Group II catalytic intron D1-D4-5: a 193-nucleotide RNA. Its family is annotated with Group II intron splicing in the Gene Ontology. On this family, see Lehmann and Schmidt, Crit Rev Biochem Mol Biol 2003: "Group II introns: structure and catalytic versatility of large natural ribozymes". The match comes from Rfam's covariance-model search (94 bits). The family has 139 seed sequences and 720 matches in Rfam 15.1.
[Rfam]
RNA sequence: UCUAAUCAAUUUUGAGAAUAACGGAAUGAUAGAUAGCAAAUAAUCUUGAAACGUUAUAUCUAAUACUCCUACAUGCAUAUAUUUAUUAAACGGACUAUAUGUGUGAAGUUAGGUGAAGUCAGUUGAACCACUCCCCUAUAACGGGAAACUUAAGUAUUAUAUACUAAGAGUGUAUAGACUGGGAUGCGUUAUA
Numbered sequence: 001u002c003u004a005a006u007c008a009a010u011u012u013u014g015a016g017a018a019u020a021a022c023g024g025a026a027u028g029a030u031a032g033a034u035a036g037c038a039a040a041u042a043a044u045c046u047u048g049a050a051a052c053g054u055u056a057u058a059u060c061u062a063a064u065a066c067u068c069c070u071a072c073a074u075g076c077a078u079a080u081a082u083u084u085a086u087u088a089a090a091c092g093g094a095c096u097a098u099a100u101g102u103g104u105g106a107a108g109u110u111a112g113g114u115g116a117a118g119u120c121a122g123u124u125g126a127a128c129c130a131c132u133c134c135c136c137u138a139u140a141a142c143g144g145g146a147a148a149c150u151u152a153a154g155u156a157u158u159a160u161a162u163a164c165u166a167a168g169a170g171u172g173u174a175u176a177g178a179c180u181g182g183g184a185u186g187c188g189u190u191a192u193a
Base pairs, nucleotide, nucleotide: 018057019056020055021054022053023052031047032046058185059184060183061182068113069112070111071110072105073104074103075102076101077100078099079098080097081096083094084093120181121180122179123178124177128172134145135144136143149168150167151166153165154164155163156162